[Rfam]
RNA sequence: AAUAAUUAUCGUUAAGUGAGGCUCCUAUGCGGAUACAUGCUGAUGCCCGGAAACAUCGAGAGAUGCCAAUGGGUCAACAGAUUCUACCGUAAUAAGGUUUAAUCUAAUGCAGCCGGUAAAUCCUAUGCCGUAUAGUGCUAAAACCCAACGAGUAUGUUGAGU
Numbered sequence: 001a002a003u004a005a006u007u008a009u010c011g012u013u014a015a016g017u018g019a020g021g022c023u024c025c026u027a028u029g030c031g032g033a034u035a036c037a038u039g040c041u042g043a044u045g046c047c048c049g050g051a052a053a054c055a056u057c058g059a060g061a062g063a064u065g066c067c068a069a070u071g072g073g074u075c076a077a078c079a080g081a082u083u084c085u086a087c088c089g090u091a092a093u094a095a096g097g098u099u100u101a102a103u104c105u106a107a108u109g110c111a112g113c114c115g116g117u118a119a120a121u122c123c124u125a126u127g128c129c130g131u132a133u134a135g136u137g138c139u140a141a142a143a144c145c146c147a148a149c150g151a152g153u154a155u156g157u158u159g160a161g162u
Stems, first nucleotide, its partner, number of pairs: 005158001007156003011149002013095001016144002020139003025135008039113004045074005054065004080104004086098003115123002
Dot-bracket structure: ....(.(((.(([..((..(((..((((((((......((((..(((((....((((....))))....))))).....((((..(((......])))..)))).....)))).((.....))....)))))))).)))...))...))....))).)....